Shown here is a 61-nucleotide sequence, a member of the family "Actino-ugpB RNA".
The base pairs follow the family's consensus structure, which is taken from published work.
The family's RNA type in Rfam is small RNA.
Rfam's curators put it in the seed alignment.
RNA sequence: GUCGAUAAGGACACCUAGUGGUGUGGCAGUCCAAUGAAGGGAUUGUCGGCAUACGAGAAAG
Numbered sequence: 001g002u003c004g005a006u007a008a009g010g011a012c013a014c015c016u017a018g019u020g021g022u023g024u025g026g027c028a029g030u031c032c033a034a035u036g037a038a039g040g041g042a043u044u045g046u047c048g049g050c051a052u053a054c055g056a057g058a059a060a061g
Stems, first nucleotide, its partner, number of pairs: 011024005027045006